[Rfam]
RNA sequence: CCUCCCGAGAAGCGCUGCAACAGGGUCACCUGCCAGGCUCGGGAGUGGGAACAUGGGUAAUGAACGGCGCUUGGUUUUU
Numbered sequence: 001c002c003u004c005c006c007g008a009g010a011a012g013c014g015c016u017g018c019a020a021c022a023g024g025g026u027c028a029c030c031u032g033c034c035a036g037g038c039u040c041g042g043g044a045g046u047g048g049g050a051a052c053a054u055g056g057g058u059a060a061u062g063a064a065c066g067g068c069g070c071u072u073g074g075u076u077u078u079u
Stems, first nucleotide, its partner, number of pairs: 002045007021032004